[Rfam]
RNA sequence: UGGCUCGGUUUCCUGGGGGGUGGCCUCAGUCUGCCCCACCUCCCCUCAGACGAGCCUAGAGUAGAGAGACCGGGCUUCCUUCCCCAUGGGAAAGGUGGAGAGGUGGUUAAGAAAGGCACCUCACCUGGACUGUCCUCGCCUCACAUUU
Numbered sequence: 001u002g003g004c005u006c007g008g009u010u011u012c013c014u015g016g017g018g019g020g021u022g023g024c025c026u027c028a029g030u031c032u033g034c035c036c037c038a039c040c041u042c043c044c045c046u047c048a049g050a051c052g053a054g055c056c057u058a059g060a061g062u063a064g065a066g067a068g069a070c071c072g073g074g075c076u077u078c079c080u081u082c083c084c085c086a087u088g089g090g091a092a093a094g095g096u097g098g099a100g101a102g103g104u105g106g107u108u109a110a111g112a113a114a115g116g117c118a119c120c121u122c123a124c125c126u127g128g129a130c131u132g133u134c135c136u137c138g139c140c141u142c143a144c145a146u147u148u
Stems, first nucleotide, its partner, number of pairs: 002056006015044009066142003070138001072136003079128002088121003

Rfam assigns this 148-nucleotide sequence from Hipposideros armiger to the family "Small Cajal body specific RNA 21".
Gene Ontology terms of the family: Cajal body, RNA processing and nucleolus.
From the family's description: scaRNAs are a specific class of small nuclear RNAs which localise to the Cajal bodies and guide the modification of RNA polymerase II transcribed spliceosomal RNAs U1, U2, U4, U5 and U12. ACA68 (SCARNA21) is a member of the H/ACA class of snoRNAs that guide the sites of modification of uridines to pseudouridines. This snoRNA was identified by computational screening and its expression in mouse experimentally verified by Northern blot and primer extension analysis.
A reference for the family is Schattner et al. (2006), "A computational screen for mammalian pseudouridylation guide H/ACA RNAs", RNA.